[Rfam]
RNA sequence: CCGUCCGAGGGGCGCUGCAGCAGGUUCCGCGCCGGUCCACGCACCGGCUCCUGUCAGGCUCGGACGGGCUGUCGCCACGGCACGCAUCCUGCGGCCGUUCUGACUUCAACGGCGCCCAUUCGAC
Numbered sequence: 001c002c003g004u005c006c007g008a009g010g011g012g013c014g015c016u017g018c019a020g021c022a023g024g025u026u027c028c029g030c031g032c033c034g035g036u037c038c039a040c041g042c043a044c045c046g047g048c049u050c051c052u053g054u055c056a057g058g059c060u061c062g063g064a065c066g067g068g069c070u071g072u073c074g075c076c077a078c079g080g081c082a083c084g085c086a087u088c089c090u091g092c093g094g095c096c097g098u099u100c101u102g103a104c105u106u107c108a109a110c111g112g113c114g115c116c117c118a119u120u121c122g123a124c
Base pairs, nucleotide, nucleotide: 002066003065004064005063006062007061008060021053022052023051024050
SAH (S-adenosyl-L-homocysteine) riboswitch aptamer: a 124-nucleotide sequence from Geopseudomonas guangdongensis. The organism belongs to Geopseudomonas, within Bacteria. On this family, see Wang et al., Mol Cell 2008: "Riboswitches that sense S-adenosylhomocysteine and activate genes involved in coenzyme recycling". The match comes from Rfam's covariance-model search (55 bits).